[Rfam]
RNA: Group II catalytic intron D1-D4-5
Organism: Candidatus Epulonipiscium fishelsonii
RNA sequence: AAGAACUAAUAAUCUGAACAAUCGAAUGACAGGGUAACGCCUUGAAAGGUUGUCCAUAAUACUCCGAAUGGCGUGAAUUGAGGUAAAACAAGAAGCGUCAUAAGCUCGGUAAAGUCGGCUGAGAGCGUAUCCAAGUGCUAAAUAUAUUUUUAGAAACGGAAAAGUGAACUGGAGGCAGUCAAGUACGUGAUAGGUCGGUGGUCUAAGAC
Dot-bracket structure: .................((((((.......((((.....))))....))))))((((......(((((((((((...(((........)))...)))))))....))))......(((((....((((((((......(..............)...)).....((.((((....)))))).))))))....)))))))))........
Numbered sequence: 001a002a003g004a005a006c007u008a009a010u011a012a013u014c015u016g017a018a019c020a021a022u023c024g025a026a027u028g029a030c031a032g033g034g035u036a037a038c039g040c041c042u043u044g045a046a047a048g049g050u051u052g053u054c055c056a057u058a059a060u061a062c063u064c065c066g067a068a069u070g071g072c073g074u075g076a077a078u079u080g081a082g083g084u085a086a087a088a089c090a091a092g093a094a095g096c097g098u099c100a101u102a103a104g105c106u107c108g109g110u111a112a113a114g115u116c117g118g119c120u121g122a123g124a125g126c127g128u129a130u131c132c133a134a135g136u137g138c139u140a141a142a143u144a145u146a147u148u149u150u151u152a153g154a155a156a157c158g159g160a161a162a163a164g165u166g167a168a169c170u171g172g173a174g175g176c177a178g179u180c181a182a183g184u185a186c187g188u189g190a191u192a193g194g195u196c197g198g199u200g201g202u203c204u205a206a207g208a209c
Stems, first nucleotide, its partner, number of pairs: 018053006031043004054201004064109004068101007078091003116197005125188006131159002139154001165181002168179004